[Rfam]
RNA: Small nucleolar RNA SNORA33
Organism: Suricata suricatta
RNA sequence: AAUCCCACAAAUGAAUCUGCUUACAUGAAUGUGUUUCUGCAGAAACUUGGGAAAAGCUGGCAAUGGUAAGCCAUGUUACAAGCCUUAAAGAUAUUGAAGUCAUUAAGGUCCCUAAAAAUGGCUAUAAGA
Numbered sequence: 001a002a003u004c005c006c007a008c009a010a011a012u013g014a015a016u017c018u019g020c021u022u023a024c025a026u027g028a029a030u031g032u033g034u035u036u037c038u039g040c041a042g043a044a045a046c047u048u049g050g051g052a053a054a055a056g057c058u059g060g061c062a063a064u065g066g067u068a069a070g071c072c073a074u075g076u077u078a079c080a081a082g083c084c085u086u087a088a089a090g091a092u093a094u095u096g097a098a099g100u101c102a103u104u105a106a107g108g109u110c111c112c113u114a115a116a117a118a119u120g121g122c123u124a125u126a127a128g129a
Stems, first nucleotide, its partner, number of pairs: 004060002016043005070122004082109007090101003